[Rfam]
RNA: Small nucleolar RNA Z103
Organism: Zea mays
Nucleotides: 093
Stems, first nucleotide, its partner, number of pairs: 002092004
Number, partner (000 for none) and nucleotide at each position: 001000u002092g003091g004090g005089g006000u007000a008000u009000g010000a011000u012000g013000a014000u015000u016000c017000u018000u019000u020000c021000c022000c023000c024000a025000g026000u027000u028000g029000a030000u031000c032000g033000c034000a035000a036000g037000u038000g039000a040000a041000c042000a043000u044000u045000c046000u047000g048000u049000u050000c051000u052000c053000u054000a055000u056000a057000a058000u059000u060000c061000u062000c063000u064000u065000u066000g067000g068000a069000g070000a071000a072000u073000c074000a075000a076000g077000c078000c079000a080000g081000a082000a083000c084000u085000c086000u087000g088000a089005u090004u091003c092002u093000c